[Rfam]
RNA: Plastid-ccsA-ndhD-2 3UTR RNA
Organism: Helianthus annuus
RNA sequence: UCGGAGAAAACCAUGUGAAUCAAGUGGUAUAGUGAUUCACAUGAUUUUUACAA
Numbered sequence: 001u002c003g004g005a006g007a008a009a010a011c012c013a014u015g016u017g018a019a020u021c022a023a024g025u026g027g028u029a030u031a032g033u034g035a036u037u038c039a040c041a042u043g044a045u046u047u048u049u050a051c052a053a
Stems, first nucleotide, its partner, number of pairs: 004051001006049005012043011